Background:
The family of this 101-nucleotide RNA sequence from Canis lupus is "mir-8904 microRNA precursor family". The family has 2 seed sequences and 207 matches in Rfam 15.1. Gene Ontology terms of the family: RISC complex and miRNA-mediated post-transcriptional gene silencing. The source organism's lineage runs through Eukaryota, Euteleostomi, Theria, Canidae and Canis lupus. It scores 106 bits against the family's covariance model.
[Rfam]
RNA sequence: CCUCAGGCUCCCUGGGACAGUAACAGAGCAACUGCGCCCAGGGAGAGUGUGCCGAGCUCCCUAAAGGGCUGCAGCGCACGCGGCUGGACCCGGGAGCAGCU
Numbered sequence: 001c002c003u004c005a006g007g008c009u010c011c012c013u014g015g016g017a018c019a020g021u022a023a024c025a026g027a028g029c030a031a032c033u034g035c036g037c038c039c040a041g042g043g044a045g046a047g048u049g050u051g052c053c054g055a056g057c058u059c060c061c062u063a064a065a066g067g068g069c070u071g072c073a074g075c076g077c078a079c080g081c082g083g084c085u086g087g088a089c090c091c092g093g094g095a096g097c098a099g100c101u
Base pairs, nucleotide, nucleotide: 007097008096009095010094011093012092014090015089018086019085021082028077029076032074033073034072035071036069037068038067039066040062041061042060043059044058045057048054049053